Background:
Small nucleolar RNA SNORA74: a 200-nucleotide RNA sequence from Rhynochetos jubatus. Its Rfam clan is "SNORA74 clan". The source organism's lineage runs through Eukaryota, Bilateria, Sauropsida, Neognathae and Rhynochetos. Rfam classes the family as an H/ACA-box small nucleolar RNA. U19 belongs to the H/ACA class of snoRNAs. snoRNAs bind a number of proteins (including dyskerin, Gar1p and Nop10p in the case of the H/ACA class) to form snoRNP complexes. This class are thought to guide the sites of modification of uridines to pseudouridines by forming direct base pairing interactions with substrate RNAs. Pairs were carried over by alignment from the consensus structure, which was predicted with PFOLD.

RNA sequence: UCCAGUGGUCGUCAGCUGUCCACAGCAGUACUGUGCUUGUGAUAGUGUUACACUGCUGGGAGAUAAAGAUCGGUCAUUUCUUCUGGCUGCUGUCACCGUUCUGGAGACAGCUGAUGCCAAAUAGGAGUGGCACUGUGCUUCCCUGAGAGUGCGCUAAAGAUCUGCUUUCCCUCUUUAGUGCUAGUCUGGAAGCGUACAUA
Numbered sequence: 001u002c003c004a005g006u007g008g009u010c011g012u013c014a015g016c017u018g019u020c021c022a023c024a025g026c027a028g029u030a031c032u033g034u035g036c037u038u039g040u041g042a043u044a045g046u047g048u049u050a051c052a053c054u055g056c057u058g059g060g061a062g063a064u065a066a067a068g069a070u071c072g073g074u075c076a077u078u079u080c081u082u083c084u085g086g087c088u089g090c091u092g093u094c095a096c097c098g099u100u101c102u103g104g105a106g107a108c109a110g111c112u113g114a115u116g117c118c119a120a121a122u123a124g125g126a127g128u129g130g131c132a133c134u135g136u137g138c139u140u141c142c143c144u145g146a147g148a149g150u151g152c153g154c155u156a157a158a159g160a161u162c163u164g165c166u167u168u169c170c171c172u173c174u175u176u177a178g179u180g181c182u183a184g185u186c187u188g189g190a191a192g193c194g195u196a197c198a199u200a
Stems, first nucleotide, its partner, number of pairs: 001060009011051002015046006021039002024037003068133001073131004078127005084119004090113001092111001094106001096104002135195008151181003155177006